[Rfam]
RNA sequence: AGCUUACAGCGUAGAAAAGUCUUACUGCACCUGUGCUUGCACAAAGGUGCAGAAAAGACUUUGAGACGCGCCCCGAACAUGAGCAAAAAAGCGAAGCGAAGCUGAGUGAUAUGCGAAUGUACGGGAAGGAUUGUGUGAGUGCGAAGCACGUAGCAAUCCGGUAAGCU
Number, nucleotide and partner (000 for none) at each position: 001a167002g166003c165004u164005u163006a000007c000008a000009g000010c068011g067012u066013a000014g000015a000016a000017a061018a060019g059020u058021c057022u056023u055024a000025c052026u051027g050028c049029a048030c047031c046032u043033g042034u041035g040036c000037u000038u000039g000040c035041a034042c033043a032044a000045a000046g031047g030048u029049g028050c027051a026052g025053a000054a000055a023056a022057g021058a020059c019060u018061u017062u000063g000064a000065g000066a012067c011068g010069c000070g000071c000072c000073c124074c123075g122076a000077a120078c119079a118080u117081g000082a000083g114084c113085a112086a000087a000088a000089a000090a000091g000092c000093g000094a000095a103096g102097c101098g000099a000100a000101g097102c096103u095104g000105a000106g000107u000108g000109a000110u000111a000112u085113g084114c083115g000116a000117a080118u079119g078120u077121a000122c075123g074124g073125g000126a000127a000128g159129g158130a157131u156132u155133g154134u153135g000136u000137g000138a000139g149140u148141g147142c146143g000144a000145a000146g142147c141148a140149c139150g000151u000152a000153g134154c133155a132156a131157u130158c129159c128160g000161g000162u000163a005164a004165g003166c002167u001